[Rfam]
RNA sequence: AACCUUGGCAGCCCCUCUUGGUGAUUCCUCCUCCUGAGUGGCUCCAAUGAUGAGCAAACUGAGCUUCUAAGAAGUUGACUGAAUGGGCAGCUCUGCC
Numbered sequence: 001a002a003c004c005u006u007g008g009c010a011g012c013c014c015c016u017c018u019u020g021g022u023g024a025u026u027c028c029u030c031c032u033c034c035u036g037a038g039u040g041g042c043u044c045c046a047a048u049g050a051u052g053a054g055c056a057a058a059c060u061g062a063g064c065u066u067c068u069a070a071g072a073a074g075u076u077g078a079c080u081g082a083a084u085g086g087g088c089a090g091c092u093c094u095g096c097c
Stems, first nucleotide, its partner, number of pairs: 007092003011088004
Shown here is a 97-nucleotide RNA from Mus musculus, a member of the family "Small nucleolar RNA SNORD125". Pairs were carried over by alignment from the consensus structure, which was predicted with WAR. The source organism's lineage runs through Eukaryota, Teleostomi, Rodentia, Murinae and Mus. By type it is a C/D-box small nucleolar RNA. Rfam's curators put it in the seed alignment. The family is grouped with related families in Rfam's "SNORD61 clan". The literature on the family includes a 2006 paper in Nucleic Acids Res by Yang et al., "snoSeeker: an advanced computational package for screening of guide and orphan snoRNA genes in the human genome".